[Rfam]
RNA sequence: GCCAUCUGUUUUCAUUAAGGUCUUCAGAUGCCUGUCAUGGGCUCUGCUGAGAAAGCCACUUGGAAGAGCUAAUGGCAAACA
Numbered sequence: 001g002c003c004a005u006c007u008g009u010u011u012u013c014a015u016u017a018a019g020g021u022c023u024u025c026a027g028a029u030g031c032c033u034g035u036c037a038u039g040g041g042c043u044c045u046g047c048u049g050a051g052a053a054a055g056c057c058a059c060u061u062g063g064a065a066g067a068g069c070u071a072a073u074g075g076c077a078a079a080c081a
Stems, first nucleotide, its partner, number of pairs: 001076004
This 81-nucleotide RNA sequence from Urocitellus parryii belongs to the Rfam family "Small nucleolar RNA SNORD35". The organism belongs to Urocitellus, within Eukaryota. Clan: SNORD35 clan. Rfam links the family to the GO terms nucleolus and RNA processing. For this family Rfam cites "Intron-encoded, antisense small nucleolar RNAs: the characterization of nine novel species points to their direct role as guides for the 2'-O-ribose methylation of rRNAs" (Nicoloso et al., J Mol Biol, 1996). Rfam 15.1 lists 1,842 matches to the family in 634 species. U35 is a C/D box snoRNA located in intron 6 of ribosomal protein L13A and intron 3 of ribosomal protein S11 in humans and at homologous positions in mouse and chicken ribosomal protein genes. Pairs were carried over by alignment from the consensus structure, which was predicted with PFOLD. The match comes from Rfam's covariance-model search (47 bits). The family's RNA type in Rfam is C/D-box small nucleolar RNA.